[Rfam]
RNA sequence: AGCAAAAUGAGGAGGUCAUAAAAUCUAUAGUAUCUAAUGUUGAUACAACCAUACAUGGUCUUCAAAGUUCUCUGAUUGUU
Numbered sequence: 001a002g003c004a005a006a007a008u009g010a011g012g013a014g015g016u017c018a019u020a021a022a023a024u025c026u027a028u029a030g031u032a033u034c035u036a037a038u039g040u041u042g043a044u045a046c047a048a049c050c051a052u053a054c055a056u057g058g059u060c061u062u063c064a065a066a067g068u069u070c071u072c073u074g075a076u077u078g079u080u
Base pairs, nucleotide, nucleotide: 001080002079003078004077005076

Small nucleolar RNA R160: an 80-nucleotide RNA from Triticum aestivum. From the family's description: snoR160 is a C/D box small nucleolar RNA, which acts as a methylation guide for 25S ribosomal RNA in plants. snoR160 has been alternatively named snoZ270 in rice. Its family is annotated with RNA processing and nucleolus in the Gene Ontology. Taxonomically the source falls in Triticum (Eukaryota, Euphyllophyta, Liliopsida, commelinids). The pairing is the family consensus, mapped onto this sequence.